[Rfam]
The record is a 67-nucleotide sequence from Anaerotignum lactatifermentans, which matches "Glycine riboswitch aptamer" in Rfam.
RNA sequence: CUCUGGAAAGUAUUUCAUUUACGAUGAAAUCGCCGUAGAAGUAAAACUUUCAGGCAAAGAUACAGAG
Number, nucleotide and partner (000 for none) at each position: 001c067002u066003c065004u064005g063006g000007a000008a000009a000010g000011u000012a030013u029014u028015u027016c000017a000018u000019u000020u000021a000022c000023g000024a000025u000026g000027a015028a014029a013030u012031c000032g055033c054034c053035g051036u000037a000038g000039a049040a048041g047042u000043a000044a000045a000046a000047c041048u040049u039050u000051c035052a000053g034054g033055c032056a000057a000058a000059g000060a000061u000062a000063c005064a004065g003066a002067g001